Record summary
A member of the RNA family "Bacterial RNase P class A" from Berryella wangjianweii, 338 nucleotides long. Gene Ontology terms of the family: ribonuclease P activity, tRNA processing and dimeric ribonuclease P complex. The base pairs follow the family's consensus structure, which is taken from published work. The organism belongs to Berryella, within Bacteria.
[Rfam]
RNA sequence: UGAGUGGGCCAGACGGUCGCAUGCCUGCAUGAGGAAAGUCCGGGCUCCCAAGGGCAAGAUGCCAGCUAACGGCUGGGCGGAGCGAUCCGACGGAAAGUGCCACAGAAAAGAAGACUCCCCAGUUCAUCUGGAGAAAAGCUGAAACGGUGCGGUAAGAGCGCACCAGCGCGCCGGCAACGGCGCGGCUUGGCAAACCCCAUCUGGAGCAAGCGCAAAUAGGAACGCGAUACGGCCGCCCUUCCGUGCGUUCGGGUUGCGUGCUAGAGCCAUGCGGCGACGCAUGGCGUAGAUAAAUGGCCGUUCAACGACAGAACCCGGCUUAUCGGCUCACUCGGCUU
Numbered sequence: 001u002g003a004g005u006g007g008g009c010c011a012g013a014c015g016g017u018c019g020c021a022u023g024c025c026u027g028c029a030u031g032a033g034g035a036a037a038g039u040c041c042g043g044g045c046u047c048c049c050a051a052g053g054g055c056a057a058g059a060u061g062c063c064a065g066c067u068a069a070c071g072g073c074u075g076g077g078c079g080g081a082g083c084g085a086u087c088c089g090a091c092g093g094a095a096a097g098u099g100c101c102a103c104a105g106a107a108a109a110g111a112a113g114a115c116u117c118c119c120c121a122g123u124u125c126a127u128c129u130g131g132a133g134a135a136a137a138g139c140u141g142a143a144a145c146g147g148u149g150c151g152g153u154a155a156g157a158g159c160g161c162a163c164c165a166g167c168g169c170g171c172c173g174g175c176a177a178c179g180g181c182g183c184g185g186c187u188u189g190g191c192a193a194a195c196c197c198c199a200u201c202u203g204g205a206g207c208a209a210g211c212g213c214a215a216a217u218a219g220g221a222a223c224g225c226g227a228u229a230c231g232g233c234c235g236c237c238c239u240u241c242c243g244u245g246c247g248u249u250c251g252g253g254u255u256g257c258g259u260g261c262u263a264g265a266g267c268c269a270u271g272c273g274g275c276g277a278c279g280c281a282u283g284g285c286g287u288a289g290a291u292a293a294a295u296g297g298c299c300g301u302u303c304a305a306c307g308a309c310a311g312a313a314c315c316c317g318g319c320u321u322a323u324c325g326g327c328u329c330a331c332u333c334g335g336c337u338u
Stems, first nucleotide, its partner, number of pairs: 001334010011323001012302007020031004036321003040318005045206004052238004057202005062076005077091001078089004092197002097195002099191003115138002118133001120131001122129001146164006166186001167184007210259004220250006229244004266285008
By type it is a ribozyme. A search with the family's covariance model found it, with a score of 296 bits.